[Rfam]
RNA sequence: CAAUAGAAGGUCUGUGGUUGAAAGUCCAUGCCAGUCGCAGGCGAAAGGACCCACGUAACGCAGCCAAAUGUGCUGCUGAUCAUGGUGCGGCUUAGGAGUAAGCCCUGCCGGGAUCAAACCCGAGAGAAGCGGCGUGACGGCAAACCCGGAGCAAGGCUUCCAGCAGGCGAGUGUGGGGUCAAAGACCAGGUCAGCUUCUAUUG
Number, nucleotide and partner (000 for none) at each position: 001c203002a202003a201004u200005a199006g198007a197008a196009g195010g000011u000012c194013u193014g192015u188016g187017g186018u185019u184020g000021a000022a000023a000024g000025u000026c000027c000028a174029u173030g172031c041032c000033a092034g091035u090036c089037g088038c087039a086040g000041g031042c000043g000044a000045a000046a000047g000048g000049a000050c085051c084052c000053a000054c000055g080056u000057a000058a077059c000060g076061c075062a074063g073064c072065c000066a000067a000068a000069u000070g000071u000072g064073c063074u062075g061076c060077u058078g000079a000080u055081c000082a000083u181084g051085g050086u039087g038088c037089g036090g035091c034092u033093u000094a000095g000096g000097a000098g000099u000100a000101a000102g000103c000104c167105c166106u165107g164108c163109c122110g121111g120112g119113a000114u000115c000116a000117a000118a000119c112120c111121c110122g109123a000124g000125a000126g160127a159128a158129g157130c000131g000132g000133c000134g152135u151136g000137a000138c148139g147140g146141c000142a000143a000144a000145c000146c140147c139148g138149g000150a000151g135152c134153a000154a000155g000156g000157c129158u128159u127160c126161c000162a000163g108164c107165a106166g105167g104168c000169g000170a000171g000172u030173g029174u028175g000176g000177g000178g000179u000180c000181a083182a000183a000184g019185a018186c017187c016188a015189g000190g000191u000192c014193a013194g012195c009196u008197u007198c006199u005200a004201u003202u002203g001
RNA: raiA RNA